[Rfam]
RNA sequence: UGACUGUUUGGGUGUCCUUGGAUGUAAAAAGCUAUAAAUCUGUUAAGAUUGCUUUGUACUCCGAUGCCAUCCACAUGGUCU
Numbered sequence: 001u002g003a004c005u006g007u008u009u010g011g012g013u014g015u016c017c018u019u020g021g022a023u024g025u026a027a028a029a030a031g032c033u034a035u036a037a038a039u040c041u042g043u044u045a046a047g048a049u050u051g052c053u054u055u056g057u058a059c060u061c062c063g064a065u066g067c068c069a070u071c072c073a074c075a076u077g078g079u080c081u
Base pairs, nucleotide, nucleotide: 003079004078005077006076007075009073010072011071012070013069014068018064019063020062021061022060024059025058026057028055029054030053031052032051